Shown here is a 64-nucleotide RNA from Prolemur simus, a member of the family "U7 small nuclear RNA". The source organism's lineage runs through Eukaryota, Chordata, Euteleostomi, Boreoeutheria and Prolemur.
RNA sequence: UAGUGUUACAGCUCUUUUAGAAUUUGUCCAUUGGGUUUUUCAGUCCUCAUCAGAAGACUCCUUA
Numbered sequence: 001u002a003g004u005g006u007u008a009c010a011g012c013u014c015u016u017u018u019a020g021a022a023u024u025u026g027u028c029c030a031u032u033g034g035g036u037u038u039u040u041c042a043g044u045c046c047u048c049a050u051c052a053g054a055a056g057a058c059u060c061c062u063u064a
Stems, first nucleotide, its partner, number of pairs: 034061002037057005043051001

Animal histone pre-mRNAs are spliced by a different mechanism than nuclear pre-mRNAs and self-splicing introns. It scores 40 bits against the family's covariance model. Pairs were carried over by alignment from the consensus structure, which was predicted with PFOLD.